Shown here is a 64-nucleotide sequence from Limnothrix sp. P13C2, a member of the family "Cyanobacterial functional RNA 1". It is annotated as a small RNA. The match comes from Rfam's covariance-model search (59 bits).
[Rfam]
Nucleotides: 064
Stems, first nucleotide, its partner, number of pairs: 001020008041061007
Number, partner (000 for none) and nucleotide at each position: 001020g002019c003018g004017g005016a006015g007014a008013c009000g010000c011000a012000u013008g014007u015006u016005u017004c018003c019002g020001u021000u022000c023000a024000c025000u026000c027000c028000u029000c030000a031000c032000a033000c034000c035000a036000c037000a038000c039000u040000c041061c042060g043059c044058u045057c046056g047055a048000a049000c050000a051000a052000g053000c054000u055047u056046c057045g058044g059043g060042c061041g062000g063000u064000u